[Rfam]
Rfam assigns this 64-nucleotide sequence from Sylvietta virens to the family "MAT2A 3'UTR stem loop A". For this family Rfam cites "New families of human regulatory RNA structures identified by comparative analysis of vertebrate genomes" (Parker et al., Genome Res, 2011). Rfam classes the family as a cis-regulatory element. Rfam 15.1 lists 595 matches to the family in 507 species.

RNA sequence: GCUUUUUCCCCCACUCCCAUGGGCGUAGGUUACAGAGAAGCCCAUGGGCUCUGGGGGAAAGAGC
Numbered sequence: 001g002c003u004u005u006u007u008c009c010c011c012c013a014c015u016c017c018c019a020u021g022g023g024c025g026u027a028g029g030u031u032a033c034a035g036a037g038a039a040g041c042c043c044a045u046g047g048g049c050u051c052u053g054g055g056g057g058a059a060a061g062a063g064c
Base pairs, nucleotide, nucleotide: 001064002063003061007058008057009056010055012053013052018046019045022042023041024040025033026032